[Rfam]
RNA sequence: GAUAGCCAUAGAUCACAAAAGGAUUGAGAGUUGGUUCAGUUACAAGGCGAACAUCAUGAAUAUUCGUGUCAUAAAUUCCUCCCCAAAACAUGGCUUUACCUACCAGCAAUAAAGCUGCUACGCCUAAAAACAAGAGGUGGUGUCCUAAGAUUAAACCCAGUUGUUUAGGAUCAUCCCA
Numbered sequence: 001g002a003u004a005g006c007c008a009u010a011g012a013u014c015a016c017a018a019a020a021g022g023a024u025u026g027a028g029a030g031u032u033g034g035u036u037c038a039g040u041u042a043c044a045a046g047g048c049g050a051a052c053a054u055c056a057u058g059a060a061u062a063u064u065c066g067u068g069u070c071a072u073a074a075a076u077u078c079c080u081c082c083c084c085a086a087a088a089c090a091u092g093g094c095u096u097u098a099c100c101u102a103c104c105a106g107c108a109a110u111a112a113a114g115c116u117g118c119u120a121c122g123c124c125u126a127a128a129a130a131c132a133a134g135a136g137g138u139g140g141u142g143u144c145c146u147a148a149g150a151u152u153a154a155a156c157c158c159a160g161u162u163g164u165u166u167a168g169g170a171u172c173a174u175c176c177c178a
Stems, first nucleotide, its partner, number of pairs: 136175006144169005